[Rfam]
RNA sequence: UGAUGCCAGGGUCAAAAGGUCUAAGCCCAUGUGAGCUUGCUCAUAAGUAGGUGAGAGACCUUGGGACCCGCCCCGAUAUGAGCAUAAAAGUGGGAUGAUAAUCCCACAAUAUGCGAAUGUGGUGAGGAUUGUGGGAGUGCAUAGCACGGAACAAUCCGCAGGCAUCA
Numbered sequence: 001u002g003a004u005g006c007c008a009g010g011g012u013c014a015a016a017a018g019g020u021c022u023a024a025g026c027c028c029a030u031g032u033g034a035g036c037u038u039g040c041u042c043a044u045a046a047g048u049a050g051g052u053g054a055g056a057g058a059c060c061u062u063g064g065g066a067c068c069c070g071c072c073c074c075g076a077u078a079u080g081a082g083c084a085u086a087a088a089a090g091u092g093g094g095a096u097g098a099u100a101a102u103c104c105c106a107c108a109a110u111a112u113g114c115g116a117a118u119g120u121g122g123u124g125a126g127g128a129u130u131g132u133g134g135g136a137g138u139g140c141a142u143a144g145c146a147c148g149g150a151a152c153a154a155u156c157c158g159c160a161g162g163c164a165u166c167a
Base pairs, nucleotide, nucleotide: 001167002166003165004164005163006162007161010068011067012066013065016062017061018060019059020058021057022056026051027050029048030047031044032043033042034041035040072124074122076120077119078118079117082114083113084112085111090107091106092105093104094103095102096101126157127156128155129154130153131152132151137147138146139145140144
The family of this 167-nucleotide RNA from Oscillospiraceae bacterium Marseille-Q3528 is "Clostridiales-1 RNA".